RNA sequence: GAAAACUAAUAUUCUGAAAGGUAGAAUGAGGAGGUAACGCUCUAAAAUGCCUUCCCUGAUACUCCGAUAUGCAAUCUUGUUGAUAAAGACAAGAUUGUAUAAAGCUCGGUAAAGUCGGUUGAAUGUUACCCCAGUAUGCUCUAAAAGGCAUAUGGAAAACUGCUCAGAGGUGAGUGGCGUAGCAGAUAGACCGGGGGUCUAUAAA
Numbered sequence: 001g002a003a004a005a006c007u008a009a010u011a012u013u014c015u016g017a018a019a020g021g022u023a024g025a026a027u028g029a030g031g032a033g034g035u036a037a038c039g040c041u042c043u044a045a046a047a048u049g050c051c052u053u054c055c056c057u058g059a060u061a062c063u064c065c066g067a068u069a070u071g072c073a074a075u076c077u078u079g080u081u082g083a084u085a086a087a088g089a090c091a092a093g094a095u096u097g098u099a100u101a102a103a104g105c106u107c108g109g110u111a112a113a114g115u116c117g118g119u120u121g122a123a124u125g126u127u128a129c130c131c132c133a134g135u136a137u138g139c140u141c142u143a144a145a146a147g148g149c150a151u152a153u154g155g156a157a158a159a160c161u162g163c164u165c166a167g168a169g170g171u172g173a174g175u176g177g178c179g180u181a182g183c184a185g186a187u188a189g190a191c192c193g194g195g196g197g198u199c200u201a202u203a204a205a
Base pairs, nucleotide, nucleotide: 018053019052020051021050022049023048031043033041034040054197055196056195057194064109065108066107067106068101069100070099071098072097073096074095075094076093077092078091079090080089081088116193117192118191119190120189124184125183126182127181128180129179130155131154137150138149139148140147160177161176162175163174164173165172166171

Group II catalytic intron D1-D4-5: a 205-nucleotide sequence from Bacillus thuringiensis.
The family has 139 seed sequences and 720 matches in Rfam 15.1.
Group II introns are found in rRNA, tRNA and mRNA of organelles in fungi, plants and protists, and also in mRNA in bacteria.
Gene Ontology term of the family: Group II intron splicing.